mir-3473 microRNA precursor family: a 77-nucleotide sequence from Jaculus jaculus. The base pairs follow the family's consensus structure, which was predicted with RNAalifold.

[Rfam]
RNA sequence: ACUGCUAGGCCAUCUCUCCAGCCCUGUUUUAUUUUUUAAAUAUUUAUUUGAGGGGGCUGGAGAGAUGGCCUAGCAGU
Numbered sequence: 001a002c003u004g005c006u007a008g009g010c011c012a013u014c015u016c017u018c019c020a021g022c023c024c025u026g027u028u029u030u031a032u033u034u035u036u037u038a039a040a041u042a043u044u045u046a047u048u049u050g051a052g053g054g055g056g057c058u059g060g061a062g063a064g065a066u067g068g069c070c071u072a073g074c075a076g077u
Stems, first nucleotide, its partner, number of pairs: 002076023